[Rfam]
RNA: tRNA
RNA sequence: GUGAGUGCCGCGAAGAUGGUGUUUCGCAAUGGACUGUAAAUCCAUCGCCUUCGGGCUUAGCAGGUUCGAAUCCUGUCACUCACA
Numbered sequence: 001g002u003g004a005g006u007g008c009c010g011c012g013a014a015g016a017u018g019g020u021g022u023u024u025c026g027c028a029a030u031g032g033a034c035u036g037u038a039a040a041u042c043c044a045u046c047g048c049c050u051u052c053g054g055g056c057u058u059a060g061c062a063g064g065u066u067c068g069a070a071u072c073c074u075g076u077c078a079c080u081c082a083c084a
Stems, first nucleotide, its partner, number of pairs: 001083007010027004029045005060076005